[Rfam]
RNA sequence: CGCGUUUUUCGCCCAGGCGGAGCUCGACCGCCGGCUGAAGCCAUGAGGGCGUUCGUCGACGAACACCGGGAGAACUUCGGGGUCGAGCCGAUCUGCAAGGUGCUGCAGGUUGUUGGCGCCG
Dot-bracket structure: ...............(((((.......))))).............................................(((.(......((.((((((......)))))).))....).)))
The record is a 121-nucleotide RNA from Metallibacterium scheffleri, which matches "ALIL pseudoknot" in Rfam.
Its family is annotated with positive regulation of translational frameshifting in the Gene Ontology.
NCBI's taxonomy places the organism under Bacteria, Pseudomonadota, Gammaproteobacteria, Rhodanobacteraceae, Metallibacterium.
The literature on the family includes a 2008 paper in J Biol Chem by Mazauric et al., "Apical loop-internal loop RNA pseudoknots: a new type of stimulator of -1 translational frameshifting in bacteria".